[Rfam]
RNA sequence: UGCCUUUGUGUUGCUCAUUCAUUUCUAUAUUAGAUGAAUGUGGUGUCAACUAAGGCGCACAGUAAAUCUUGCAAUAGCCAAGUUAAUGAGAGGACACACUUGUGGUUCUUCUUGCUUGCACUAUGCCAAGAACAAAU
Numbered sequence: 001u002g003c004c005u006u007u008g009u010g011u012u013g014c015u016c017a018u019u020c021a022u023u024u025c026u027a028u029a030u031u032a033g034a035u036g037a038a039u040g041u042g043g044u045g046u047c048a049a050c051u052a053a054g055g056c057g058c059a060c061a062g063u064a065a066a067u068c069u070u071g072c073a074a075u076a077g078c079c080a081a082g083u084u085a086a087u088g089a090g091a092g093g094a095c096a097c098a099c100u101u102g103u104g105g106u107u108c109u110u111c112u113u114g115c116u117u118g119c120a121c122u123a124u125g126c127c128a129a130g131a132a133c134a135a136a137u
Stems, first nucleotide, its partner, number of pairs: 002056005009048002012045004016040008068130004072125001074124004087118004092112002096107001
Small nucleolar RNA SNORA13: a 137-nucleotide sequence from Triplophysa tibetana. By type it is an H/ACA-box small nucleolar RNA. ACA13 is a member of the H/ACA class of snoRNA that guide the sites of modification of uridines to pseudouridines. Its family is annotated with RNA processing and nucleolus in the Gene Ontology. Rfam 15.1 lists 1,034 matches to the family in 605 species.